[Rfam]
Rfam assigns this 107-nucleotide RNA sequence from Dendrobium nobile to the family "Small nucleolar RNA snoR97". Taxonomically the source falls in Dendrobium (Eukaryota, Streptophytina, Magnoliopsida, Liliopsida). The family has 7 seed sequences and 862 matches in Rfam 15.1. A reference for the family is Marker et al. (2002), "Experimental RNomics: identification of 140 candidates for small non-messenger RNAs in the plant Arabidopsis thaliana", Curr Biol.
RNA sequence: AUUGCAAUAUGAGCAUGGAGGCAUAAAAACUCAUAGAUUUGGUGUUGUCAUCACCUUCAUCUCUGCUUGCUUACAAGAGUUUGGAGUUGAAUAGCAACACAACAUUA
Number, nucleotide and partner (000 for none) at each position: 001a000002u000003u000004g000005c000006a000007a000008u000009a000010u000011g000012a000013g000014c000015a000016u000017g000018g000019a000020g000021g000022c000023a000024u000025a000026a000027a000028a000029a000030c000031u000032c000033a000034u000035a000036g000037a000038u000039u000040u000041g000042g100043u099044g098045u097046u096047g095048u000049c000050a000051u000052c000053a088054c000055c086056u085057u084058c083059a000060u000061c079062u078063c077064u000065g000066c000067u000068u000069g000070c000071u000072u000073a000074c000075a000076a000077g063078a062079g061080u000081u000082u000083g058084g057085a056086g055087u000088u053089g000090a000091a000092u000093a000094g000095c047096a046097a045098c044099a043100c042101a000102a000103c000104a000105u000106u000107a000
Its family is annotated with RNA processing and nucleolus in the Gene Ontology. Pairs were carried over by alignment from the consensus structure, which was predicted with WAR.